The record is an 80-nucleotide sequence from Streptomyces rapamycinicus, which matches "nrdJ RNA" in Rfam. The base pairs follow the family's consensus structure, which is taken from published work. Rfam classes the family as a small RNA.

Nucleotides: 080
Stems, first nucleotide, its partner, number of pairs: 004031008012022003047069007
Number, partner (000 for none) and nucleotide at each position: 001000a002000c003000c004031c005030g006029c007028c008027c009026g010025g011024g012022g013021c014020g015000c016000u017000u018000g019000u020014c021013g022012c023000g024011u025010c026009c027008g028007g029006g030005u031004g032000a033000a034000a035000g036000a037000c038000a039000g040000a041000c042000a043000c044000a045000c046000c047069g048068u049067g050066c051065c052064c053063g054000g055000g056000g057000a058000a059000g060000a061000a062000a063053u064052g065051g066050g067049c068048a069047c070000a071000u072000c073000a074000g075000g076000g077000c078000g079000u080000u